[Rfam]
RNA sequence: UAACGAUAACGGCCAACCCAUUCGAAAGGUGGGGACGCAAAGCCAAGGGUCAACGGCGUGUAACACGCUACGGCAGCCGGGUUACCGAA
Number, nucleotide and partner (000 for none) at each position: 001u000002a000003a000004c000005g000006a000007u000008a000009a000010c000011g000012g038013c037014c000015a000016a000017c033018c032019c031020a030021u000022u029023c028024g000025a000026a000027a000028g023029g022030u020031g019032g018033g017034g000035a000036c000037g013038c012039a000040a000041a083042g082043c081044c080045a000046a000047g078048g077049g074050u073051c072052a000053a000054c000055g000056g068057c067058g066059u065060g000061u000062a000063a000064c000065a059066c058067g057068c056069u000070a000071c000072g051073g050074c049075a000076g000077c048078c047079g000080g044081g043082u042083u041084a000085c000086c000087g000088a000089a000
The family of this 89-nucleotide RNA sequence from Paenibacillus sp. PvR098 is "c-di-GMP-I riboswitch aptamer".
The family's consensus secondary structure is taken from published work.